Record summary
The family of this 82-nucleotide sequence from Acetobacterium woodii is "c-di-GMP-I riboswitch aptamer". Rfam links the family to the GO term cyclic-di-GMP binding. Pairs were carried over by alignment from the consensus structure, which is taken from published work. Rfam describes the family as follows. GEMM was predicted in a large-scale screen for bacterial structured RNA regulatory elements. Genes associated with GEMM are involved in a diverse array of functions, including chemotaxis regulation, signal transduction, secretion and chitin.
[Rfam]
RNA sequence: GUUAAUAUUUGGCAAACUUACUGAAAAGUGAGGACGCAAAACUAAAGGGCCUAAGUGAUUUAUAUGGCUGCCAGUUGCAAAA
Numbered sequence: 001g002u003u004a005a006u007a008u009u010u011g012g013c014a015a016a017c018u019u020a021c022u023g024a025a026a027a028g029u030g031a032g033g034a035c036g037c038a039a040a041a042c043u044a045a046a047g048g049g050c051c052u053a054a055g056u057g058a059u060u061u062a063u064a065u066g067g068c069u070g071c072c073a074g075u076u077g078c079a080a081a082a
Stems, first nucleotide, its partner, number of pairs: 012037002017032006040076004047072002049068003056062002